[Rfam]
RNA: Archaeal large subunit ribosomal RNA, nucleotides 10 to 588
RNA sequence: UAUUAUUAAACCAUCUGGGGGAUGGCUUGGCUUGAGUUGCUGAUGAGGGUCGUGGCAAGCUGCGAUAAGCCUGGGCGAGGAGCAUGCAUCCUUUGAACCUGGGAUUACCUAAUGGGACUUCCUAUCCAAAAUUUAUUUUGGGUGCUCCCUUUUUUUUGGGGAGCGGGAACCCGCUGAACUGAAACAUCUUAGUAGGCGGAGGAGAAGAAAGCAAUAUGCGAUGCUGUUAGUAACGGCGAGUGAAAACGGCGUAGAAUAAACUGAAUUCCUCAUAGUGAUGUGGGGAAGAUGUGGUGUUAUUAAGACUUUGGUCGUGUUAUUCCUCUUUUUUUAAGUUGAAAUUGUGCUGGAAUGCCGUACCGUAGAGGGUUAUAGUCCCGUAGAUAUGGAUUUUUGAGGUUUAGAUCAUAUGUUCUUGAGUAGGGUCCAUUGGAUAUUGGGCCUGAAUUUGGGAGGCAUCGACUCCUAAUUCUAAAUACAUUUUCUCAAGACCGAUAGCGUACUAGUACCGUGAGGGAAAGCUGAAAAGACCCCUUAUCGGGGUGUGAAAUAGAGCCUGAAACCAGAUGGUGACAGCCA
Dot-bracket structure: .........(((((((((.....(((..((((((((.((.......(((((((........))).....((((((...(((.......)))......))))))...))))...(((....))).....................(((((.........)))))......((((((.....((....))......))))).).........((.....))...(((((.....((.....))....)))))..((((....(((.......((((....)))).........)))..............(((.......(.((............(((...(.((.((......)))))..(...).(((.......)))...)))............)).)....)))..............(((((((........)))))))......(((((.......)))))..)))).....))....)))))).))...............((....))....))..................................).....)))))))))........